[Rfam]
RNA: Yersinia sRNA 197
Organism: Serratia rubidaea
RNA sequence: GGCGCAAUAGUGAGCGGUUGAGAAAAAAGUGAAUAUUAAUCCUUGUCAUUCUGAAUCGCCUCCCUAUAAUGCGCCUCCAUCGACACGGAACAUGUGAACAACUUCACAGAGUAUCCGGGGUCGACAGAGAAAAAAUCCUGAAAAAACGGGUUGACUCUGAAAGAGGAAAGCGUAAUAUACGCCACCUCGAGUUAGCAAGCGAAAGCGCGUAACUCACUGCUCUUUAACAAUUUAUCAGAC
Number, nucleotide and partner (000 for none) at each position: 001g218002g217003c000004g000005c000006a000007a000008u000009a000010g000011u000012g000013a000014g000015c000016g000017g000018u000019u000020g000021a000022g000023a000024a000025a000026a000027a000028a000029g000030u000031g000032a000033a000034u000035a000036u000037u000038a000039a000040u120041c119042c118043u117044u000045g115046u000047c000048a112049u111050u110051c109052u108053g105054a104055a103056u000057c000058g000059c000060c000061u097062c096063c000064c000065u000066a095067u094068a093069a000070u000071g091072c000073g000074c088075c000076u000077c000078c000079a000080u000081c000082g000083a000084c000085a000086c000087g000088g074089a000090a000091c071092a000093u068094g067095u066096g062097a061098a000099c000100a000101a000102c000103u055104u054105c053106a000107c000108a052109g051110a050111g049112u048113a000114u000115c045116c000117g043118g042119g041120g040121u000122c000123g000124a000125c159126a158127g157128a156129g155130a000131a000132a152133a151134a000135a000136u148137c000138c000139u146140g000141a000142a000143a000144a000145a000146a139147c000148g136149g000150g000151u133152u132153g000154a000155c129156u128157c127158u126159g125160a000161a000162a000163g188164a187165g186166g185167a000168a000169a000170g182171c181172g180173u000174a000175a000176u000177a000178u000179a000180c172181g171182c170183c000184a000185c166186c165187u164188c163189g215190a214191g213192u212193u211194a210195g000196c000197a000198a000199g000200c000201g000202a000203a000204a000205g000206c000207g000208c000209g000210u194211a193212a192213c191214u190215c189216a000217c002218u001219g000220c000221u000222c000223u000224u000225u000226a000227a000228c000229a000230a000231u000232u000233u000234a000235u000236c000237a000238g000239a000240c000